A member of the RNA family "drz-agam-1 ribozyme" from Hermetia illucens, 79 nucleotides long.
Rfam 15.1 lists 10,507 matches to the family in 53 species.
The family's consensus secondary structure is taken from published work.
The match comes from Rfam's covariance-model search (39 bits).
A reference for the family is Webb et al. (2009), "Widespread occurrence of self-cleaving ribozymes", Science.
[Rfam]
RNA sequence: UACUACCAAACCCUAUCUCCACCUCCACAUGGUGACCGCUGGAAGGUUUUUCUUAACGGAAAGCUGCAGACGGAGAAGG
Numbered sequence: 001u002a003c004u005a006c007c008a009a010a011c012c013c014u015a016u017c018u019c020c021a022c023c024u025c026c027a028c029a030u031g032g033u034g035a036c037c038g039c040u041g042g043a044a045g046g047u048u049u050u051u052c053u054u055a056a057c058g059g060a061a062a063g064c065u066g067c068a069g070a071c072g073g074a075g076a077a078g079g
Stems, first nucleotide, its partner, number of pairs: 012079003016075001018073002021033003045065008